The record is a 92-nucleotide RNA sequence from Ilumatobacter coccineus, which matches "Selenocysteine transfer RNA" in Rfam. Gene Ontology term of the family: triplet codon-amino acid adaptor activity. The organism belongs to Ilumatobacter coccineus, within Bacteria. Pairs were carried over by alignment from the consensus structure, which is taken from published work. Rfam 15.1 lists 4,211 matches to the family in 3,344 species.

RNA sequence: GGAGGUGUCUGGGUACCUGGUGGGCUCCGCCGCCUUCAAAGCGGUUGGGAUGGGCGAUCCCCAUCCGGCGGGUUCGAUUCCCGUCCACCUCC
Numbered sequence: 001g002g003a004g005g006u007g008u009c010u011g012g013g014u015a016c017c018u019g020g021u022g023g024g025c026u027c028c029g030c031c032g033c034c035u036u037c038a039a040a041g042c043g044g045u046u047g048g049g050a051u052g053g054g055c056g057a058u059c060c061c062c063a064u065c066c067g068g069c070g071g072g073u074u075c076g077a078u079u080c081c082c083g084u085c086c087a088c089c090u091c092c
Base pairs, nucleotide, nucleotide: 001092002091003090004089005088006087007086012027013026016023017022029045030044031043032042033041048066049065050064051063052062069083070082071081072080